[Rfam]
Notes: A member of the RNA family "Small nucleolar RNA R160" from Papaver somniferum, 81 nucleotides long. snoR160 is a C/D box small nucleolar RNA, which acts as a methylation guide for 25S ribosomal RNA in plants. snoR160 has been alternatively named snoZ270 in rice. By type it is a C/D-box small nucleolar RNA. On this family, see Chen et al., Nucleic Acids Res 2003: "The high diversity of snoRNAs in plants: identification and comparative study of 120 snoRNA genes from Oryza sativa". Pairs were carried over by alignment from the consensus structure. NCBI's taxonomy places the organism under Eukaryota, Viridiplantae, Ranunculales, Papaveraceae, Papaver. A search with the family's covariance model found it, with a score of 70 bits.

RNA sequence: AGCAAAAUGAUGAGAUUAUGUAUCUGAAAUUUGUGUUGAAUCAUCUAUAAACCUAAUGGUCUUCAAAGUUCUCUGAUUGCU
Numbered sequence: 001a002g003c004a005a006a007a008u009g010a011u012g013a014g015a016u017u018a019u020g021u022a023u024c025u026g027a028a029a030u031u032u033g034u035g036u037u038g039a040a041u042c043a044u045c046u047a048u049a050a051a052c053c054u055a056a057u058g059g060u061c062u063u064c065a066a067a068g069u070u071c072u073c074u075g076a077u078u079g080c081u
Base pairs, nucleotide, nucleotide: 001081002080003079004078005077